[Rfam]
RNA sequence: UCAUCAGUAGGGUGAUCCUUACCUGUGGUCCCCUCUGGGGACACAGUGAGGACACGUGAUGAAAUAGAGAGUGAUGAUUGGUUCAUGACUUACUUUCUCUGGGUUGGCAGGAAAUGCAACACCUGCCAAUGCCAUUUCUGAC
Numbered sequence: 001u002c003a004u005c006a007g008u009a010g011g012g013u014g015a016u017c018c019u020u021a022c023c024u025g026u027g028g029u030c031c032c033c034u035c036u037g038g039g040g041a042c043a044c045a046g047u048g049a050g051g052a053c054a055c056g057u058g059a060u061g062a063a064a065u066a067g068a069g070a071g072u073g074a075u076g077a078u079u080g081g082u083u084c085a086u087g088a089c090u091u092a093c094u095u096u097c098u099c100u101g102g103g104u105u106g107g108c109a110g111g112a113a114a115u116g117c118a119a120c121a122c123c124u125g126c127c128a129a130u131g132c133c134a135u136u137u138c139u140g141a142c
Stems, first nucleotide, its partner, number of pairs: 023046003028042005076099002080095002082092001103130009
This 142-nucleotide sequence from Paramuricea clavata belongs to the Rfam family "U8 small nucleolar RNA". NCBI's taxonomy places the organism under Eukaryota, Cnidaria, Anthozoa, Malacalcyonacea, Paramuricea. The family's consensus secondary structure is taken from published work.